[Rfam]
RNA sequence: AGAGCACUUCGUUAGGUGAGGCUCCUGCGUGAACACAGGCCACUGAUCUGACGACGUCGAGAGAUGCCCAAGAUCAGGACAGGUCUCCCCGGCCUAAGGGGUGACCCCAGGUGGCUUCCCGCCCGGCGGGACACGUCGCGCAGUGCCGAAACUCUUACGUGGAAGUGCCGA
Number, nucleotide and partner (000 for none) at each position: 001a000002g000003a000004g000005c167006a166007c165008u164009u163010c162011g158012u157013u097014a000015g153016g152017u151018g000019a000020g147021g146022c145023u000024c000025c143026u142027g141028c140029g139030u138031g137032a136033a000034c000035a000036c000037a000038g000039g115040c114041c113042a112043c111044u000045g075046a074047u073048c072049u071050g000051a000052c000053g000054a000055c066056g065057u064058c063059g000060a000061g000062a000063g058064a057065u056066g055067c000068c000069c000070a000071a049072g048073a047074u046075c045076a000077g000078g000079a000080c000081a000082g106083g105084u104085c103086u000087c000088c100089c099090c098091g000092g000093c000094c000095u000096a000097a013098g090099g089100g088101g000102u000103g085104a084105c083106c082107c000108c000109a000110g000111g043112u042113g041114g040115c039116u000117u131118c130119c129120c000121g000122c000123c000124c000125g000126g000127c000128g000129g119130g118131a117132c000133a000134c000135g000136u032137c031138g030139c029140g028141c027142a026143g025144u000145g022146c021147c020148g000149a000150a000151a017152c016153u015154c000155u000156u000157a012158c011159g000160u000161g000162g010163a009164a008165g007166u006167g005168c000169c000170g000171a000
RNA: M-box riboswitch aptamer (ykoK leader)